Rfam assigns this 72-nucleotide RNA sequence from Rodentolepis nana to the family "HDV ribozyme from F. prausnitzii".
RNA sequence: GGGGUGUGAGAUAGACUUACCUCCACGUGGUCCACCCUGGGCAACGUAUGCUUAUACGGCAAAAAAGUAAAA
Numbered sequence: 001g002g003g004g005u006g007u008g009a010g011a012u013a014g015a016c017u018u019a020c021c022u023c024c025a026c027g028u029g030g031u032c033c034a035c036c037c038u039g040g041g042c043a044a045c046g047u048a049u050g051c052u053u054a055u056a057c058g059g060c061a062a063a064a065a066a067g068u069a070a071a072a
Stems, first nucleotide, its partner, number of pairs: 001038006019031003045058005

A reference for the family is Webb et al. (2009), "Widespread occurrence of self-cleaving ribozymes", Science. The match comes from Rfam's covariance-model search (46 bits). The family's consensus secondary structure is taken from published work. Lineage of the source: Eukaryota > Metazoa > Lophotrochozoa > Cestoda > Rodentolepis.